Rfam assigns this 100-nucleotide RNA sequence from Cohnella lupini to the family "Purine riboswitch aptamer". Lineage of the source: Bacteria > Bacillati > Bacilli > Paenibacillaceae > Cohnella. Pairs were carried over by alignment from the consensus structure, which is taken from published work.
[Rfam]
RNA sequence: AAUUUCAUCGAUUCAUCCAUUCGUAUAUCCUUGGCGAUACGGGCCGGGGGUCUCUACCGGGAACCUUAAAUUCCCGACUACGAAGGAUGUGGCACCCCCA
Numbered sequence: 001a002a003u004u005u006c007a008u009c010g011a012u013u014c015a016u017c018c019a020u021u022c023g024u025a026u027a028u029c030c031u032u033g034g035c036g037a038u039a040c041g042g043g044c045c046g047g048g049g050g051u052c053u054c055u056a057c058c059g060g061g062a063a064c065c066u067u068a069a070a071u072u073c074c075c076g077a078c079u080a081c082g083a084a085g086g087a088u089g090u091g092g093c094a095c096c097c098c099c100a
Stems, first nucleotide, its partner, number of pairs: 018086001020084006029049007058076006